[Rfam]
RNA sequence: GCCGAGCUCAGUAGCGAGAGCUUGUAACCCGAGCGGGGGCACUAAGGUGGUGGGACGUAAGCUCGAAUCCUUUGGGCUGGGUCUGCAGAGGCUUCUUUCUGGCCCGCCCGUUCCAAGCCGAGAGCUGAUUCAUGUGGUUCGGGCGAAUGCCCGGGCCACGUGUGUCCUAAAGCGGAGGGCACCACGUGAGGCUGGUUUCACAGAGCAGCGAAAACCUCCCGCUCCCGGCAGUGGAAGGAUAACGGGCCGGUGCCGAUCAGCACCCGCUGUGGUCCAACGGGCCGAGUCCUACUGGACCACCACCUUU
Numbered sequence: 001g002c003c004g005a006g007c008u009c010a011g012u013a014g015c016g017a018g019a020g021c022u023u024g025u026a027a028c029c030c031g032a033g034c035g036g037g038g039g040c041a042c043u044a045a046g047g048u049g050g051u052g053g054g055a056c057g058u059a060a061g062c063u064c065g066a067a068u069c070c071u072u073u074g075g076g077c078u079g080g081g082u083c084u085g086c087a088g089a090g091g092c093u094u095c096u097u098u099c100u101g102g103c104c105c106g107c108c109c110g111u112u113c114c115a116a117g118c119c120g121a122g123a124g125c126u127g128a129u130u131c132a133u134g135u136g137g138u139u140c141g142g143g144c145g146a147a148u149g150c151c152c153g154g155g156c157c158a159c160g161u162g163u164g165u166c167c168u169a170a171a172g173c174g175g176a177g178g179g180c181a182c183c184a185c186g187u188g189a190g191g192c193u194g195g196u197u198u199c200a201c202a203g204a205g206c207a208g209c210g211a212a213a214a215c216c217u218c219c220c221g222c223u224c225c226c227g228g229c230a231g232u233g234g235a236a237g238g239a240u241a242a243c244g245g246g247c248c249g250g251u252g253c254c255g256a257u258c259a260g261c262a263c264c265c266g267c268u269g270u271g272g273u274c275c276a277a278c279g280g281g282c283c284g285a286g287u288c289c290u291a292c293u294g295g296a297c298c299a300c301c302a303c304c305u306u307u
Stems, first nucleotide, its partner, number of pairs: 001040003004023006028037003044306010056294002058291002061287005068281003072277006079265004083260003087257001090254002093252001099250008108238002111236005117229004122224004127166003131162014167172001174219005185210003192203003
Plant signal recognition particle RNA: a 307-nucleotide RNA from Eucalyptus grandis. It scores 266 bits against the family's covariance model. The organism belongs to Eucalyptus, within Eukaryota. The family has 63 seed sequences and 4,988 matches in Rfam 15.1.